[Rfam]
RNA sequence: CGGCGCGGAAUGGGGGUGAUGGCCCCGACCGCGCCUGACCACGACUGCCUGCAUAGGAGGCAUCCAUGGCUAA
Number, nucleotide and partner (000 for none) at each position: 001c000002g035003g034004c033005g032006c031007g000008g000009a000010a000011u027012g026013g025014g024015g023016g000017u000018g000019a000020u000021g000022g000023c015024c014025c013026c012027g011028a000029c000030c000031g006032c005033g004034c003035c002036u000037g000038a000039c069040c068041a067042c000043g000044a000045c000046u062047g061048c060049c059050u058051g000052c056053a000054u000055a000056g052057g000058a050059g049060g048061c047062a046063u000064c000065c000066a000067u041068g040069g039070c000071u000072a000073a000
RNA: R1162-like plasmid antisense RNA
Organism: Pistricoccus aurantiacus